RNA sequence: CACAAACUUAAAUUAAAACACACAUACACUGUGACUGCGUAUCGGGGUGUCCAGCUUAGUAAUAAGUGCGGAUCGAUACAAAGGGUGUAUGGAGGCCUAAC
Numbered sequence: 001c002a003c004a005a006a007c008u009u010a011a012a013u014u015a016a017a018a019c020a021c022a023c024a025u026a027c028a029c030u031g032u033g034a035c036u037g038c039g040u041a042u043c044g045g046g047g048u049g050u051c052c053a054g055c056u057u058a059g060u061a062a063u064a065a066g067u068g069c070g071g072a073u074c075g076a077u078a079c080a081a082a083g084g085g086u087g088u089a090u091g092g093a094g095g096c097c098u099a100a101c
Stems, first nucleotide, its partner, number of pairs: 023091008036082001039079006049073004
RNA: t44 RNA